The family of this 131-nucleotide RNA sequence from Eurypyga helias is "Small Cajal body specific RNA 15". For this family Rfam cites "Cajal body-specific small nuclear RNAs: a novel class of 2'-O-methylation and pseudouridylation guide RNAs" (Darzacq et al., EMBO J, 2002). Rfam classes the family as a small Cajal body RNA.
RNA sequence: CUGGAGGACUAAGAAAGUGGAGCCAGUGCCAUUAUAUUGACUCCACUGAUACUAUCCUCCGAAAUGAAACGGUGGAGGAACAAGGCCUGCCUGCAAGGUGAAGCCAGGGCCUACUUCAUCCGCCUACAAGG
Numbered sequence: 001c002u003g004g005a006g007g008a009c010u011a012a013g014a015a016a017g018u019g020g021a022g023c024c025a026g027u028g029c030c031a032u033u034a035u036a037u038u039g040a041c042u043c044c045a046c047u048g049a050u051a052c053u054a055u056c057c058u059c060c061g062a063a064a065u066g067a068a069a070c071g072g073u074g075g076a077g078g079a080a081c082a083a084g085g086c087c088u089g090c091c092u093g094c095a096a097g098g099u100g101a102a103g104c105c106a107g108g109g110c111c112u113a114c115u116u117c118a119u120c121c122g123c124c125u126a127c128a129a130g131g
Base pairs, nucleotide, nucleotide: 003060004059005058006057007056008055010051011050018045019044020043021042022041024039026035027034028033071124072123073122074121075120076119078117083112084111085110086108087107088106089105